The record is a 223-nucleotide RNA sequence from Thermomonospora echinospora, which matches "c-di-AMP riboswitch aptamer (ydaO/yuaA leader)" in Rfam. The base pairs follow the family's consensus structure. Lineage of the source: Bacteria > Bacillati > Streptosporangiales > Thermomonosporaceae > Thermomonospora. About the family: This family represents a conserved RNA structure found upstream of the ydaO and yuaA genes in Bacillus subtilis and related genes in other bacteria.
RNA sequence: AGCGCUGAACCGCCGAGUCCGCGGGCGCAGCCGGCGUCCGAGGAACCGGGGACCCAUCUUCAAUUCCCCUGGGCAGGCAGGAGCAGAGCGGCUCCGUCGGACCCAAUGGAGGGUGCUCCCGGGGUGAAUCCGUUCCGGCGCGUCUCCGACGCGCCGGCCGCGGUAGGGCUGCUCCUUGCCCGAACCCGUCAGCUAACCCGGUAGGCGGACCAGGAGAGGAGAC
Number, nucleotide and partner (000 for none) at each position: 001a000002g000003c000004g000005c000006u000007g000008a000009a000010c000011c207012g206013c205014c204015g000016a000017g000018u044019c043020c042021g000022c000023g000024g000025g000026c000027g000028c000029a000030g000031c000032c000033g000034g000035c000036g000037u000038c000039c000040g000041a000042g020043g019044a018045a202046c201047c200048g199049g198050g197051g000052a000053c000054c000055c121056a000057u000058c000059u000060u000061c000062a000063a000064u000065u000066c000067c000068c000069c000070u000071g000072g000073g000074c000075a000076g000077g000078c000079a000080g000081g000082a000083g000084c000085a000086g000087a000088g000089c000090g000091g000092c000093u000094c000095c000096g000097u000098c000099g000100g000101a000102c000103c000104c000105a000106a000107u000108g000109g000110a000111g000112g000113g000114u000115g000116c000117u000118c000119c000120c000121g055122g187123g186124g185125u000126g000127a000128a000129u000130c163131c162132g161133u160134u000135c000136c000137g000138g000139c000140g000141c000142g000143u000144c000145u000146c000147c000148g000149a000150c000151g000152c000153g000154c000155c000156g000157g000158c000159c000160g133161c132162g131163g130164u000165a000166g181167g180168g179169c178170u000171g000172c000173u000174c000175c000176u000177u000178g169179c168180c167181c166182g000183a000184a000185c124186c123187c122188g000189u000190c000191a000192g000193c000194u000195a000196a000197c050198c049199c048200g047201g046202u045203a000204g014205g013206c012207g011208g000209a000210c000211c000212a000213g000214g000215a000216g000217a000218g000219g000220a000221g000222a000223c000